[Rfam]
RNA sequence: CUGCGAUAUUUGAUGGGAGGGUGAGAACCCUCGUGGUUCGAGCCGAGCGUAGCGAGACAACAGCGGAGCUCGCGACGCUGGCCCCGGAGGGGCGAAGUAAUCCCUCCCUCACCGCCA
Numbered sequence: 001c002u003g004c005g006a007u008a009u010u011u012g013a014u015g016g017g018a019g020g021g022u023g024a025g026a027a028c029c030c031u032c033g034u035g036g037u038u039c040g041a042g043c044c045g046a047g048c049g050u051a052g053c054g055a056g057a058c059a060a061c062a063g064c065g066g067a068g069c070u071c072g073c074g075a076c077g078c079u080g081g082c083c084c085c086g087g088a089g090g091g092g093c094g095a096a097g098u099a100a101u102c103c104c105u106c107c108c109u110c111a112c113c114g115c116c117a
Base pairs, nucleotide, nucleotide: 015108016107017106018105019104020103021102022100032090037088038087039086040084044054045053061080062079063078064077065076
This 117-nucleotide sequence from Pontibacterium sinense belongs to the Rfam family "RtT RNA".
The organism belongs to Pontibacterium, within Bacteria.
On this family, see Bosl and Kersten, Nucleic Acids Res 1991: "A novel RNA product of the tyrT operon of Escherichia coli".
It is annotated as a cis-regulatory element.
From the family's description: This family represents a bacterial cis-regulatory element known as RtT RNA. The exact function of RtT is unknown although it is thought that it may be involved in changing the cellular response in relation to amino acid starvation.
The match comes from Rfam's covariance-model search (65 bits).